[Rfam]
Record summary
The family of this 67-nucleotide sequence is "DUF3800-IX RNA". The family's consensus secondary structure is taken from published work. Actinobacteria, Firmicutes (1 example), Nitrospirae, Proteobacteria, Verrucomicrobia (1 example).
RNA sequence: UCCCGCCCACCGAAAAGUCACCGGAUGGUGACCUGCCAGGAAAUCCUGGCUAGGUGGGCGGGUUUGU
Numbered sequence: 001u002c003c004c005g006c007c008c009a010c011c012g013a014a015a016a017g018u019c020a021c022c023g024g025a026u027g028g029u030g031a032c033c034u035g036c037c038a039g040g041a042a043a044u045c046c047u048g049g050c051u052a053g054g055u056g057g058g059c060g061g062g063u064u065u066g067u
Base pairs, nucleotide, nucleotide: 002062003061004060005059006058008056009055010054011053017032018031019030020029021028022027035050036049037048038047039046